[Rfam]
RNA sequence: UAUGAAACAUACGCCGUUUUUCUUCGCAUUCUUUUUUACCUUCCCCUGAUUGGGAGGCGUUUCGUCGUGUGAUAAAGAAUGCGAAGACGAACAACAAGGCCUCCCUACCGGGAGGCCUUUUUUAU
Numbered sequence: 001u002a003u004g005a006a007a008c009a010u011a012c013g014c015c016g017u018u019u020u021u022c023u024u025c026g027c028a029u030u031c032u033u034u035u036u037u038a039c040c041u042u043c044c045c046c047u048g049a050u051u052g053g054g055a056g057g058c059g060u061u062u063c064g065u066c067g068u069g070u071g072a073u074a075a076a077g078a079a080u081g082c083g084a085a086g087a088c089g090a091a092c093a094a095c096a097a098g099g100c101c102u103c104c105c106u107a108c109c110g111g112g113a114g115g116c117c118u119u120u121u122u123u124a125u
Stems, first nucleotide, its partner, number of pairs: 016092004021087014036072004042055004056066004096119010